[Rfam]
Source information:
tRNA: a 71-nucleotide RNA sequence from Hippea maritima. Taxonomically the source falls in Hippea maritima (Bacteria, Pseudomonadati, Campylobacterota, Desulfurellales). Its family is annotated with triplet codon-amino acid adaptor activity in the Gene Ontology. The family's RNA type in Rfam is transfer RNA. A search with the family's covariance model found it, with a score of 68 bits.
RNA sequence: UGGGGCGUAGCCAAGUGGUAAGGCAGAGGACUUUGGAUCCUCGAUCGCUGGUUCGAAUCCAGCCGCCCCAG
Numbered sequence: 001u002g003g004g005g006c007g008u009a010g011c012c013a014a015g016u017g018g019u020a021a022g023g024c025a026g027a028g029g030a031c032u033u034u035g036g037a038u039c040c041u042c043g044a045u046c047g048c049u050g051g052u053u054c055g056a057a058u059c060c061a062g063c064c065g066c067c068c069c070a071g
Stems, first nucleotide, its partner, number of pairs: 001070007010024003026042005047063005
Dot-bracket structure: (((((((..(((.........))).(((((.......)))))....(((((.......)))))))))))).